Shown here is a 79-nucleotide RNA from Agarivorans albus, a member of the family "RpsF leader". For this family Rfam cites "Bacterial RNA motif in the 5' UTR of rpsF interacts with an S6:S18 complex" (Fu et al., RNA, 2014). Rfam classes the family as a cis-regulatory leader. Gene Ontology terms of the family: negative regulation of translation and protein binding. Rfam's curators write: Conserved and widely distributed to many bacterial species RNA structure. It precedes operon containing rpsF, which encodes ribosomal protein S6. It scores 38 bits against the family's covariance model.
RNA sequence: GCCAUUUUACUUUUAGUUCCUUGCCUCUUCGGUUCGGCUGUACCAUGAACGAGGCUAUAACCCGUAGGGAGCAAUCAUG
Numbered sequence: 001g002c003c004a005u006u007u008u009a010c011u012u013u014u015a016g017u018u019c020c021u022u023g024c025c026u027c028u029u030c031g032g033u034u035c036g037g038c039u040g041u042a043c044c045a046u047g048a049a050c051g052a053g054g055c056u057a058u059a060a061c062c063c064g065u066a067g068g069g070a071g072c073a074a075u076c077a078u079g
Stems, first nucleotide, its partner, number of pairs: 016072007023055005031044003